Shown here is a 79-nucleotide RNA sequence from Neogobius melanostomus, a member of the family "Small nucleolar RNA SNORD71". Rfam 15.1 lists 556 matches to the family in 528 species. Gene Ontology terms of the family: nucleolus and RNA processing. A reference for the family is Huttenhofer et al. (2001), "RNomics: an experimental approach that identifies 201 candidates for novel, small, non-messenger RNAs in mouse", EMBO J. snoRNA HBII-239 belongs to the family of C/D snoRNAs.It is the human orthologue of the mouse MBII-239 described and is predicted to guide 2'O-ribose methylation of 5.8S rRNA on residue U14. It scores 40 bits against the family's covariance model. Rfam classes the family as an H/ACA-box small nucleolar RNA. NCBI's taxonomy places the organism under Eukaryota, Chordata, Teleostei, Osteoglossocephalai, Neogobius.
RNA sequence: CAAAUGCUGUAUGAUGAAAAAAAGAGUGAUCCAUCGUCUUAGAUACAAUGCUGACUCUAAAAUUGUCUGACAGCAUUUU
Number, nucleotide and partner (000 for none) at each position: 001c000002a078003a077004a076005u075006g074007c073008u072009g068010u000011a000012u000013g031014a030015u029016g000017a027018a000019a000020a000021a000022a000023a000024g000025a000026g000027u017028g000029a015030u014031c013032c000033a000034u054035c053036g052037u000038c050039u000040u000041a000042g046043a000044u000045a000046c042047a000048a000049u000050g038051c000052u036053g035054a034055c000056u000057c000058u000059a000060a000061a000062a000063u000064u000065g000066u000067c000068u009069g000070a000071c000072a008073g007074c006075a005076u004077u003078u002079u000